[Rfam]
Overview: A member of the RNA family "Xanthine riboswitch aptamer (NMT1 RNA)", 67 nucleotides long. It is one of the family's seed sequences.
RNA sequence: GGCGAGAGUAGAAGCGUUCACCAGCGGCCGAUUUCGUCGGCUGUCCUGGCCGGGAAUUGCUCUUGAG
Dot-bracket structure: ....((((((....[..((.(((((((((((.....))))))))..)))..]))...))))))....
Gene Ontology term of the family: purine nucleobase binding.